RNA sequence: CCGUGCCAGUCAUCUGGGGAGUAGCCAGCCGUCUUCGGACGGGCCUUCGCGUCAACAUACUUGGUCGAGAGGCCAUGGCGCGAAGGGGAUGCCGCACAUCGCGGUGCUCGGGCGAGACCAAUGGCGCCACGCUUUCCGUCCGGCCGGGCGGGAAGGUGUGGUGUCGUUGGAGUUUCGCAUC
Numbered sequence: 001c002c003g004u005g006c007c008a009g010u011c012a013u014c015u016g017g018g019g020a021g022u023a024g025c026c027a028g029c030c031g032u033c034u035u036c037g038g039a040c041g042g043g044c045c046u047u048c049g050c051g052u053c054a055a056c057a058u059a060c061u062u063g064g065u066c067g068a069g070a071g072g073c074c075a076u077g078g079c080g081c082g083a084a085g086g087g088g089a090u091g092c093c094g095c096a097c098a099u100c101g102c103g104g105u106g107c108u109c110g111g112g113c114g115a116g117a118c119c120a121a122u123g124g125c126g127c128c129a130c131g132c133u134u135u136c137c138g139u140c141c142g143g144c145c146g147g148g149c150g151g152g153a154a155g156g157u158g159u160g161g162u163g164u165c166g167u168u169g170g171a172g173u174u175u176c177g178c179a180u181c
Stems, first nucleotide, its partner, number of pairs: 029042003045085010062075005088181005

Shown here is a 181-nucleotide sequence from Sphingomonas suaedae, a member of the family "Manganese Mn2+ riboswitch aptamer (yybP-ykoY)".
Taxonomically the source falls in Sphingomonas (Bacteria, Pseudomonadati, Pseudomonadota, Sphingomonadales).
It scores 54 bits against the family's covariance model.
This RNA was originally discovered in E. coli during a large scale screen and was named SraF. The family was later found to exist upstream of related families of protein genes in many bacteria, including the the yybP and ykoK genes in B. subtilis. The specific functions of these proteins are unknown, but this structured RNA element may be involved in their genetic regulation as a riboswitch.